[Rfam]
Small nucleolar RNA U6-53/MBII-28: a 109-nucleotide RNA from Peromyscus maniculatus. The base pairs follow the family's consensus structure. The family's RNA type in Rfam is C/D-box small nucleolar RNA. It scores 112 bits against the family's covariance model. Its family is annotated with nucleolus and RNA processing in the Gene Ontology. The organism belongs to Peromyscus maniculatus, within Eukaryota.

Nucleotides: 109
Base pairs, nucleotide, nucleotide: 001108002107003106004105041057042056043055044054045053
Number, partner (000 for none) and nucleotide at each position: 001108u002107c003106c004105c005000g006000a007000u008000g009000a010000u011000g012000a013000g014000u015000u016000g017000c018000c019000a020000u021000g022000c023000u024000a025000a026000u027000a028000c029000u030000g031000a032000g033000c034000c035000a036000c037000c038000a039000g040000c041057c042056a043055g044054g045053c046000u047000g048000u049000c050000c051000c052000u053045g054044c055043c056042u057041g058000g059000u060000u061000u062000g063000g064000g065000u066000g067000c068000c069000a070000g071000u072000g073000a074000g075000u076000u077000c078000a079000a080000c081000a082000a083000g084000a085000c086000u087000u088000c089000u090000c091000a092000c093000g094000u095000g096000g097000a098000g099000a100000c101000c102000u103000g104000a105004g106003g107002g108001a109000c